RNA sequence: CCCGCGCCCUAGCCGUGGGCUGAUCCCCUGCGGCGAAAACCGGCACUCCCACCGGCGGGCGCGGGAUUCAUGGGAGG
Numbered sequence: 001c002c003c004g005c006g007c008c009c010u011a012g013c014c015g016u017g018g019g020c021u022g023a024u025c026c027c028c029u030g031c032g033g034c035g036a037a038a039a040c041c042g043g044c045a046c047u048c049c050c051a052c053c054g055g056c057g058g059g060c061g062c063g064g065g066a067u068u069c070a071u072g073g074g075a076g077g
Stems, first nucleotide, its partner, number of pairs: 001065008012034008040055004046077002049074002
Dot-bracket structure: ((((((((...((((((((.......)))))))).....((((..[[.[[.))))..)))))))).......]].]]
Annotation: A member of the RNA family "int-alpA RNA" from Alkalidesulfovibrio alkalitolerans, 77 nucleotides long. It scores 39 bits against the family's covariance model. Rfam describes the family as follows. Acidobacteria (1 example), Planctomycetes (1 example), Proteobacteria. NCBI's taxonomy places the organism under Bacteria, Desulfovibrionia, Desulfovibrionales, Alkalidesulfovibrio, Alkalidesulfovibrio alkalitolerans.